[Rfam]
RNA: Antisense RNA which regulates isiA expression
RNA sequence: GAUACCCGUAGAUGAUCGCAGGAUUGAGGGUGGGUUCAGUUACCAGGCGAACGUCUUGAAUCGUGGCGUCAUAGAGUCCGCCCCAAAGGGUGGCCUUGCCCACCAAUAGCAAGGCUCCAGCUCCUAAAAAUAAGAGAUGAUGACCCAGGAUCAGACUCAACUGCCGAGGAUUGCCCCA
Numbered sequence: 001g002a003u004a005c006c007c008g009u010a011g012a013u014g015a016u017c018g019c020a021g022g023a024u025u026g027a028g029g030g031u032g033g034g035u036u037c038a039g040u041u042a043c044c045a046g047g048c049g050a051a052c053g054u055c056u057u058g059a060a061u062c063g064u065g066g067c068g069u070c071a072u073a074g075a076g077u078c079c080g081c082c083c084c085a086a087a088g089g090g091u092g093g094c095c096u097u098g099c100c101c102a103c104c105a106a107u108a109g110c111a112a113g114g115c116u117c118c119a120g121c122u123c124c125u126a127a128a129a130a131u132a133a134g135a136g137a138u139g140a141u142g143a144c145c146c147a148g149g150a151u152c153a154g155a156c157u158c159a160a161c162u163g164c165c166g167a168g169g170a171u172u173g174c175c176c177c178a
Base pairs, nucleotide, nucleotide: 136175138173139172140171141170144169145168148165